[Rfam]
RNA sequence: ACCGCCAUGGAUGGCGGCAAAAUAUGUAAAAGCGAUAUUUUGGCUUUGCCAAAAUUCGCCAUAAACCGAUGUACACGGAGGUACGUCGGUUUAUAAUU
Numbered sequence: 001a002c003c004g005c006c007a008u009g010g011a012u013g014g015c016g017g018c019a020a021a022a023u024a025u026g027u028a029a030a031a032g033c034g035a036u037a038u039u040u041u042g043g044c045u046u047u048g049c050c051a052a053a054a055u056u057c058g059c060c061a062u063a064a065a066c067c068g069a070u071g072u073a074c075a076c077g078g079a080g081g082u083a084c085g086u087c088g089g090u091u092u093a094u095a096a097u098u
Stems, first nucleotide, its partner, number of pairs: 002017005033058003037055008061094014
This 98-nucleotide RNA from Treponema parvum belongs to the Rfam family "TD-2 RNA". The match comes from Rfam's covariance-model search (55 bits). It is annotated as a small RNA. For this family Rfam cites "Identification of 22 candidate structured RNAs in bacteria using the CMfinder comparative genomics pipeline" (Weinberg et al., Nucleic Acids Res, 2007).